[Rfam]
RNA sequence: UGCCACGCUCCGUGUAUUUGACAAGCUGAGUUGGACACUCCAUGUGGUAGAGUGUCAGUUUGUCAAAUACCCCAAGUGCGGCAUG
Numbered sequence: 001u002g003c004c005a006c007g008c009u010c011c012g013u014g015u016a017u018u019u020g021a022c023a024a025g026c027u028g029a030g031u032u033g034g035a036c037a038c039u040c041c042a043u044g045u046g047g048u049a050g051a052g053u054g055u056c057a058g059u060u061u062g063u064c065a066a067a068u069a070c071c072c073c074a075a076g077u078g079c080g081g082c083a084u085g
Stems, first nucleotide, its partner, number of pairs: 006078004012072001014070014034056004039051002

Background
The family of this 85-nucleotide RNA from Eptesicus fuscus is "mir-223 microRNA precursor family". Pairs were carried over by alignment from the consensus structure, which was predicted with RNAalifold. Rfam links the family to the GO terms miRNA-mediated post-transcriptional gene silencing and RISC complex. The literature on the family includes a 2003 paper in Science by Lim et al., "Vertebrate microRNA genes". Rfam 15.1 lists 674 matches to the family in 638 species.